Rfam assigns this 85-nucleotide RNA from Pogona vitticeps to the family "mir-301 microRNA precursor family". The base pairs follow the family's consensus structure, which was predicted with WAR. It scores 68 bits against the family's covariance model.
[Rfam]
RNA sequence: UGGGGCCGGUGGCUCUGACAGUGUUGCACUACUGUCUACACAAAUGAAGCAGUGCAAUAAUAUUGUCAAGGCAUUUGGUUCCAGU
Number, nucleotide and partner (000 for none) at each position: 001u000002g082003g081004g080005g000006c000007c077008g076009g075010u000011g000012g072013c071014u070015c000016u068017g067018a066019c065020a000021g000022u000023g058024u057025u056026g055027c054028a053029c052030u051031a000032c000033u000034g041035u000036c000037u000038a000039c000040a000041c034042a000043a000044a000045u000046g000047a000048a000049g000050c000051a030052g029053u028054g027055c026056a025057a024058u023059a000060a000061u000062a000063u000064u000065g019066u018067c017068a016069a000070g014071g013072c012073a000074u000075u009076u008077g007078g000079u000080u004081c003082c002083a000084g000085u000